[Rfam]
RNA sequence: UAUAGAAUUUGUUAGGUGAGGCUCCUAUAAAGAAAUACGUUGCUACCCAGAAAAAUCUAGAGAUUCCAAUGGGUUAACAGAAAUCAUCGCGAAGGUGAUUUUUAAUGUAACUGACGAUUGUCUACGCUCUAUAGUGCUAAAGCUCUACGAAAUAGAAGGAUU
Numbered sequence: 001u002a003u004a005g006a007a008u009u010u011g012u013u014a015g016g017u018g019a020g021g022c023u024c025c026u027a028u029a030a031a032g033a034a035a036u037a038c039g040u041u042g043c044u045a046c047c048c049a050g051a052a053a054a055a056u057c058u059a060g061a062g063a064u065u066c067c068a069a070u071g072g073g074u075u076a077a078c079a080g081a082a083a084u085c086a087u088c089g090c091g092a093a094g095g096u097g098a099u100u101u102u103u104a105a106u107g108u109a110a111c112u113g114a115c116g117a118u119u120g121u122c123u124a125c126g127c128u129c130u131a132u133a134g135u136g137c138u139a140a141a142g143c144u145c146u147a148c149g150a151a152a153u154a155g156a157a158g159g160a161u162u
Stems, first nucleotide, its partner, number of pairs: 008155002011148002013093001015144003020138003025134005031128002039111005045074005054065004080102004086096003113122003